Makes More Granules Regulator RNA (mmgR): a 75-nucleotide RNA sequence from alpha proteobacterium BAL199. By type it is a small RNA. The match comes from Rfam's covariance-model search (48 bits). Taxonomically the source falls in Alphaproteobacteria (Bacteria, Pseudomonadati, Pseudomonadota). Rfam's curators write: SuhB later renamed mmgR (makes more granules regulator) was a putative non-coding RNA found multiple times in the Agrobacterium tumefaciens genome and related alpha-proteobacteria.
RNA sequence: ACGUGCUGCUUUACUUCUUGGGCGUUUCCUCCCUUAACUCGGGCCGCCGCAAGGCGGCCCUUUUUUCUGCACCGC
Dot-bracket structure: .......((((........)))).................((((((((....))))))))...............